[Rfam]
RNA sequence: CCCCGGGGGGGGUUUUUUUAAAAAAACCCCCCCCGGGGGGGUUUUUUAAAAAAAAACCCCCCCCGGCGGGAAAAUUUUUUAAAAAAAACCCCCCCCGGGGGGGGUUUUUUUAAAAAAAACCCCCCCCGGGGGGGGUUUUUUUA
Numbered sequence: 001c002c003c004c005g006g007g008g009g010g011g012g013u014u015u016u017u018u019u020a021a022a023a024a025a026a027c028c029c030c031c032c033c034c035g036g037g038g039g040g041g042u043u044u045u046u047u048a049a050a051a052a053a054a055a056a057c058c059c060c061c062c063c064c065g066g067c068g069g070g071a072a073a074a075u076u077u078u079u080u081a082a083a084a085a086a087a088a089c090c091c092c093c094c095c096c097g098g099g100g101g102g103g104g105u106u107u108u109u110u111u112a113a114a115a116a117a118a119a120c121c122c123c124c125c126c127c128g129g130g131g132g133g134g135g136u137u138u139u140u141u142u143a
Stems, first nucleotide, its partner, number of pairs: 001037001003036007011028004016023001038060008066142001068140001071080003088136023

This 143-nucleotide RNA sequence belongs to the Rfam family "Caulobacter sRNA CrfA". By type it is a small RNA. It scores 48 bits against the family's covariance model.